[Rfam]
RNA: mir-320 microRNA precursor family
Organism: Sapajus apella
RNA sequence: GAAAGGGGGUUGCUUCUCUUCCUGGUUCUUCCUGGAGUCAGGAAAAGCUGGGUUGAGAGGGCAAAAAAAAAAAAAA
Numbered sequence: 001g002a003a004a005g006g007g008g009g010u011u012g013c014u015u016c017u018c019u020u021c022c023u024g025g026u027u028c029u030u031c032c033u034g035g036a037g038u039c040a041g042g043a044a045a046a047g048c049u050g051g052g053u054u055g056a057g058a059g060g061g062c063a064a065a066a067a068a069a070a071a072a073a074a075a076a
Stems, first nucleotide, its partner, number of pairs: 014059005021052005029044006